Plastid-ccsA-ndhD-2 3UTR RNA: a 52-nucleotide RNA from Viola mirabilis. The base pairs follow the family's consensus structure, which was predicted with LocARNA. Rfam's curators write: Plastid ccsA-ndhD-2 is a non-coding RNA (ncRNA) recognised in plastids. It was found in the three prime untranslated region (3UTR) of ccsA and ndhD genes, its 3UTR location suggests a role in transcript maturation.
RNA sequence: CAUUUGUGAGAACUUUUUGAAUCAGGUAAUGUAAGGAUUCAAAAAGUUCUCA
Numbered sequence: 001c002a003u004u005u006g007u008g009a010g011a012a013c014u015u016u017u018u019g020a021a022u023c024a025g026g027u028a029a030u031g032u033a034a035g036g037a038u039u040c041a042a043a044a045a046g047u048u049c050u051c052a
Base pairs, nucleotide, nucleotide: 007052008051009050010049011048012047013046014045015044016043017042018041019040020039021038022037023036
Dot-bracket structure: ......(((((((((((((((((............)))))))))))))))))